[Rfam]
RNA: Ruegeria cis2 sRNA
Organism: Falsiruegeria litorea
RNA sequence: ACUGGAAUUGCGGGGGUAGUAGUUUCGGAACACAAAACCACGACAUUGGUCGAUGCAGUGAAACAGCGGAUUCCAAUCAAACAUUGCCAGCAUGAACGGCGGCAGCGAAUUGGCCACAAACAUCUUGCCCGAAGCGAUCAUGUUUGCCCGCUG
Numbered sequence: 001a002c003u004g005g006a007a008u009u010g011c012g013g014g015g016g017u018a019g020u021a022g023u024u025u026c027g028g029a030a031c032a033c034a035a036a037a038c039c040a041c042g043a044c045a046u047u048g049g050u051c052g053a054u055g056c057a058g059u060g061a062a063a064c065a066g067c068g069g070a071u072u073c074c075a076a077u078c079a080a081a082c083a084u085u086g087c088c089a090g091c092a093u094g095a096a097c098g099g100c101g102g103c104a105g106c107g108a109a110u111u112g113g114c115c116a117c118a119a120a121c122a123u124c125u126u127g128c129c130c131g132a133a134g135c136g137a138u139c140a141u142g143u144u145u146g147c148c149c150g151c152u153g
Base pairs, nucleotide, nucleotide: 003034004033008030009029011027012026013025014024015023039055040054041052042051043050044049064153065152066151067150068149071081072080086147087146089144090143091142092141093140094139100131101130102129103127104126105125107123110119111118112117